[Rfam]
RNA sequence: GCGGAGGGCCGGAUGGCCGCGUGCCCUCCGGGGUGCGAGGAAAGUCCGGACUCCACAAAGCAACGGUGCCGGGUAACGCCCGGGCGGAGCAAUCCGACGGAAAGCGCCACAGAAAACAGACCGCCCUCGCAUGCGGGGGUAAGGGUGAAACGGUGGGGUAAGAGCCCACCGCGCCGCUGGCAACAGGGGUGGCACGGCAAGCCCCACCGGGAGCAAUGCCAAAUAGGAACCGCGUGGAGGCUUCGGCCUUCGGGGGUGCUUUGUCCCCAGCAGGUUCGGGUUGGCAGCUAGAGGGCCACGGGCAACCGUGGCUUGAGAGGAAUGGUCAUCUAUCGGCGGGGUAACCCGCCGUGGACAGAAUCCGGCUUACAAGCCCUCCGCGCAU
Numbered sequence: 001g002c003g004g005a006g007g008g009c010c011g012g013a014u015g016g017c018c019g020c021g022u023g024c025c026c027u028c029c030g031g032g033g034u035g036c037g038a039g040g041a042a043a044g045u046c047c048g049g050a051c052u053c054c055a056c057a058a059a060g061c062a063a064c065g066g067u068g069c070c071g072g073g074u075a076a077c078g079c080c081c082g083g084g085c086g087g088a089g090c091a092a093u094c095c096g097a098c099g100g101a102a103a104g105c106g107c108c109a110c111a112g113a114a115a116a117c118a119g120a121c122c123g124c125c126c127u128c129g130c131a132u133g134c135g136g137g138g139g140u141a142a143g144g145g146u147g148a149a150a151c152g153g154u155g156g157g158g159u160a161a162g163a164g165c166c167c168a169c170c171g172c173g174c175c176g177c178u179g180g181c182a183a184c185a186g187g188g189g190u191g192g193c194a195c196g197g198c199a200a201g202c203c204c205c206a207c208c209g210g211g212a213g214c215a216a217u218g219c220c221a222a223a224u225a226g227g228a229a230c231c232g233c234g235u236g237g238a239g240g241c242u243u244c245g246g247c248c249u250u251c252g253g254g255g256g257u258g259c260u261u262u263g264u265c266c267c268c269a270g271c272a273g274g275u276u277c278g279g280g281u282u283g284g285c286a287g288c289u290a291g292a293g294g295g296c297c298a299c300g301g302g303c304a305a306c307c308g309u310g311g312c313u314u315g316a317g318a319g320g321a322a323u324g325g326u327c328a329u330c331u332a333u334c335g336g337c338g339g340g341g342u343a344a345c346c347c348g349c350c351g352u353g354g355a356c357a358g359a360a361u362c363c364g365g366c367u368u369a370c371a372a373g374c375c376c377u378c379c380g381c382g383c384a385u
Stems, first nucleotide, its partner, number of pairs: 001381009011370001012330007020037007042368003046365005051213004059262002064209005069083005084098001085096004099204002104202002106198003121144002123140007152170006171193001172191004177186003217286004227277005253267005294313008

Shown here is a 385-nucleotide sequence from Litoreibacter arenae, a member of the family "Bacterial RNase P class A". The family's RNA type in Rfam is ribozyme. It scores 291 bits against the family's covariance model. Ribonuclease P (RNase P) is a ubiquitous endoribonuclease, found in archaea, bacteria and eukarya as well as chloroplasts and mitochondria. NCBI's taxonomy places the organism under Bacteria, Alphaproteobacteria, Rhodobacterales, Litoreibacter, Litoreibacter arenae.